[Rfam]
The record is a 384-nucleotide RNA sequence from Sediminibacillus albus, which matches "Bacterial RNase P class B" in Rfam. Its Rfam clan is "RNaseP clan". The match comes from Rfam's covariance-model search (328 bits). Rfam classes the family as a ribozyme. The literature on the family includes a 1998 paper in Annu Rev Biochem by Frank and Pace, "Ribonuclease P: unity and diversity in a tRNA processing ribozyme". The organism belongs to Sediminibacillus, within Bacteria.

RNA sequence: AUGUUUGAGUAAUCGCUGCACAUUCUUUUUGUGUAGAGGAAAGUCCAUGCUCACACAGGCUGAGAUGCUUGUAGUGUUCGUGCUUGACGAAUUCAUAAGUCAAGGUAAUCCUUUUUAGGAUUAACGGCAGGGAAGAUGCCUAAGUCCAACGGAUAUGGUAUCGCAACCUUGAAAGUGCCACAGUGACGUAGUCAGGCGGGAAACCGCCUGAGUGGAACGAGGUAAACCCCGCGAGUGAGCAACCCAAAUAUUGGUAGGGGCAUCCUUCAUUAGGGAAUUCAACCGAAAGAGGGCCAAGCUUUUGCUUGGAGAUAGAUGAUUACUACUUGCGUACGAGGUUGACCACCGAUGGCAGUACAAUAGUACAGAACAUGGCUUACAAAA
Numbered sequence: 001a002u003g004u005u006u007g008a009g010u011a012a013u014c015g016c017u018g019c020a021c022a023u024u025c026u027u028u029u030u031g032u033g034u035a036g037a038g039g040a041a042a043g044u045c046c047a048u049g050c051u052c053a054c055a056c057a058g059g060c061u062g063a064g065a066u067g068c069u070u071g072u073a074g075u076g077u078u079c080g081u082g083c084u085u086g087a088c089g090a091a092u093u094c095a096u097a098a099g100u101c102a103a104g105g106u107a108a109u110c111c112u113u114u115u116u117a118g119g120a121u122u123a124a125c126g127g128c129a130g131g132g133a134a135g136a137u138g139c140c141u142a143a144g145u146c147c148a149a150c151g152g153a154u155a156u157g158g159u160a161u162c163g164c165a166a167c168c169u170u171g172a173a174a175g176u177g178c179c180a181c182a183g184u185g186a187c188g189u190a191g192u193c194a195g196g197c198g199g200g201a202a203a204c205c206g207c208c209u210g211a212g213u214g215g216a217a218c219g220a221g222g223u224a225a226a227c228c229c230c231g232c233g234a235g236u237g238a239g240c241a242a243c244c245c246a247a248a249u250a251u252u253g254g255u256a257g258g259g260g261c262a263u264c265c266u267u268c269a270u271u272a273g274g275g276a277a278u279u280c281a282a283c284c285g286a287a288a289g290a291g292g293g294c295c296a297a298g299c300u301u302u303u304g305c306u307u308g309g310a311g312a313u314a315g316a317u318g319a320u321u322a323c324u325a326c327u328u329g330c331g332u333a334c335g336a337g338g339u340u341g342a343c344c345a346c347c348g349a350u351g352g353c354a355g356u357a358c359a360a361u362a363g364u365a366c367a368g369a370a371c372a373u374g375g376c377u378u379a380c381a382a383a384a
Base pairs, nucleotide, nucleotide: 004384005383006382007380008324009323010322011321012320013319014318016036017035018034019033020032021031041378042377043376045375046374047373048372049371050239051238052237053236054235055072056071057070058069059068060067078234079233080232081231082230083104084103085102086101087100088099105125106123107122108121109120110119111118126229127228129169130168131167137160138159139158140157144154145153146152175227176226177223178222179221192211193210194209195208196207197206198205199204243259244258245257263293264292265291266290268289270287294309295308296307297306298305299304326363327362331358332357333356334355